[Rfam]
RNA sequence: CCACCGGAUAACGCAUCACUUGAUCACUGAUGGCUCAACGGUAUCCGGUGGACAGGUUAAUAUGAACGGCUACCUAUUGAGCGGGCAGCCGCAAUCCGAGACGGAGGCAUUCCGUUAGGACUGCGGUUCUUUCACUGCGCCCAUUUUGCAGCCGACCG
Numbered sequence: 001c002c003a004c005c006g007g008a009u010a011a012c013g014c015a016u017c018a019c020u021u022g023a024u025c026a027c028u029g030a031u032g033g034c035u036c037a038a039c040g041g042u043a044u045c046c047g048g049u050g051g052a053c054a055g056g057u058u059a060a061u062a063u064g065a066a067c068g069g070c071u072a073c074c075u076a077u078u079g080a081g082c083g084g085g086c087a088g089c090c091g092c093a094a095u096c097c098g099a100g101a102c103g104g105a106g107g108c109a110u111u112c113c114g115u116u117a118g119g120a121c122u123g124c125g126g127u128u129c130u131u132u133c134a135c136u137g138c139g140c141c142c143a144u145u146u147u148g149c150a151g152c153c154g155a156c157c158g
Base pairs, nucleotide, nucleotide: 001051002050003049004048005047007045008044009043010042012040013039014032015031016030017029018028033082034081035080036079037078038077067154068153069152070151071150073148088127089126090125091124092123101115102114103113104112105111